[Rfam]
The family of this 117-nucleotide RNA sequence is "gntR-DTE RNA". It scores 112 bits against the family's covariance model.
RNA sequence: CGGGUUGUCGCCGGCGGCCACUUCCUCCGCGUGCUGGCUCUGGAGAACGUCCCCUCGGGGGCGCCACCCGGUACGCGCCGCCCUGCUGGCGUCAGAGCAGUGACGAUGACGCGCCCG
Numbered sequence: 001c002g003g004g005u006u007g008u009c010g011c012c013g014g015c016g017g018c019c020a021c022u023u024c025c026u027c028c029g030c031g032u033g034c035u036g037g038c039u040c041u042g043g044a045g046a047a048c049g050u051c052c053c054c055u056c057g058g059g060g061g062c063g064c065c066a067c068c069c070g071g072u073a074c075g076c077g078c079c080g081c082c083c084u085g086c087u088g089g090c091g092u093c094a095g096a097g098c099a100g101u102g103a104c105g106a107u108g109a110c111g112c113g114c115c116c117g
Base pairs, nucleotide, nucleotide: 013082014081015080016079017078018077029076030075031074032073033072034071035070036069037068041066042065043064048063049062050061051060052059
By type it is a small RNA.
The base pairs follow the family's consensus structure, which is taken from published work.